The record is a 159-nucleotide sequence from Trichonephila inaurata, which matches "U1 spliceosomal RNA" in Rfam. Its family is annotated with U1 snRNP, pre-mRNA 5'-splice site binding and mRNA 5'-splice site recognition in the Gene Ontology. The family's RNA type in Rfam is spliceosomal small nuclear RNA.
RNA sequence: AUACUUACCUAGCACUGGGAAUGCCUUGAUCACGAAGGAGGCUUCCCCAAGCUGAGACCAACCAUUGCACAUAGGUCGGUUGACGUUUGCAACACCACUAAUUGUGGCGGAUUGGAGUGCAUUAUUUUUGGUAGUGGGACUGCGUCCGCGCUGUCCCGC
Number, nucleotide and partner (000 for none) at each position: 001a000002u000003a000004c000005u000006u000007a000008c000009c000010u000011a000012g120013c119014a118015c117016u000017g047018g046019g045020a044021a043022u000023g042024c041025c040026u039027u038028g000029a000030u000031c000032a000033c000034g000035a000036a000037g000038g027039a026040g025041g024042c023043u021044u020045c019046c018047c017048c000049a088050a087051g086052c085053u000054g084055a000056g081057a080058c079059c000060a000061a076062c075063c074064a000065u000066u000067g000068c000069a000070c000071a000072u000073a000074g063075g062076u061077c000078g000079g058080u057081u056082g000083a000084c054085g052086u051087u050088u049089g000090c114091a113092a112093c110094a000095c107096c000097a105098c104099u000100a000101a000102u000103u000104g098105u097106g000107g095108c000109g000110g093111a000112u092113u091114g090115g000116a000117g015118u014119g013120c012121a000122u000123u000124a000125u000126u000127u000128u000129u000130g000131g000132u000133a000134g000135u158136g157137g156138g155139a154140c000141u000142g151143c150144g149145u000146c000147c000148g000149c144150g143151c142152u000153g000154u139155c138156c137157c136158g135159c000
Lineage of the source: Eukaryota > Ecdysozoa > Orbiculariae > Trichonephila > Trichonephila inaurata. The base pairs follow the family's consensus structure, which is taken from published work.